The family of this 91-nucleotide RNA sequence from Clostridium paraputrificum is "NiCo (Nickel/Cobalt) riboswitch aptamer". A search with the family's covariance model found it, with a score of 72 bits. The family is grouped with related families in Rfam's "NiCo_riboswitches".
RNA sequence: ACAGUACAAACUGAUCAGGCCGAUGAAUUUAUUUAGUUUAUGGAGCCGGGCCUUAGGGCAACAGGAUUUUUAAAAUACCUGUGGGACAGUA
Numbered sequence: 001a002c003a004g005u006a007c008a009a010a011c012u013g014a015u016c017a018g019g020c021c022g023a024u025g026a027a028u029u030u031a032u033u034u035a036g037u038u039u040a041u042g043g044a045g046c047c048g049g050g051c052c053u054u055a056g057g058g059c060a061a062c063a064g065g066a067u068u069u070u071u072a073a074a075a076u077a078c079c080u081g082u083g084g085g086a087c088a089g090u091a
Base pairs, nucleotide, nucleotide: 010090011089012088013087016085018047019046020045023041024040025039026038027037028036050059051058052057061082062081063080064079065078